[Rfam]
Nucleotides: 207
Base pairs, nucleotide, nucleotide: 010206011205012204014202017199018198019197025192026191027190028189030186031185034182035181039176040175041174042173046170047169048168049167050166051165052164053163054162055160056159058087059086060085061084062083066080067079068078069077070076089157090156091155092154093153094152095151102143103142107137108136110134111133112132115131116130117129118128119127120126121125
Number, partner (000 for none) and nucleotide at each position: 001000g002000u003000g004000a005000g006000a007000u008000g009000a010206u011205g012204a013000a014202c015000u016000u017199g018198u019197u020000u021000a022000u023000c024000c025192a026191u027190u028189c029000u030186c031185u032000g033000a034182g035181c036000a037000c038000u039176g040175c041174u042173g043000g044000c045000c046170u047169c048168u049167g050166u051165c052164u053163c054162u055160g056159c057000a058087a059086c060085a061084c062083u063000c064000u065000c066080g067079g068078c069077c070076u071000g072000u073000u074000c075000u076070a077069g078068g079067c080066c081000u082000a083062a084061g085060u086059g087058u088000c089157u090156c091155g092154g093153c094152u095151c096000c097000c098000a099000g100000a101000c102143u103142c104000g105000g106000c107137u108136u109000g110134g111133c112132c113000a114000u115131u116130c117129c118128a119127g120126u121125g122000u123000u124000c125121u126120g127119c128118u129117g130116g131115g132112g133111g134110c135000g136108g137107a138000g139000c140000a141000g142103g143102a144000g145000u146000c147000u148000g149000g150000a151095g152094a153093g154092c155091u156090g157089g158000a159056g160055c161000a162054a163053g164052a165051g166050g167049c168048a169047g170046a171000a172000c173042c174041a175040g176039c177000c178000u179000c180000u181035g182034c183000a184000g185031a186030g187000a188000c189028g190027a191026g192025u193000a194000a195000a196000c197019a198018g199017u200000c201000u202014g203000a204012u205011c206010g207000c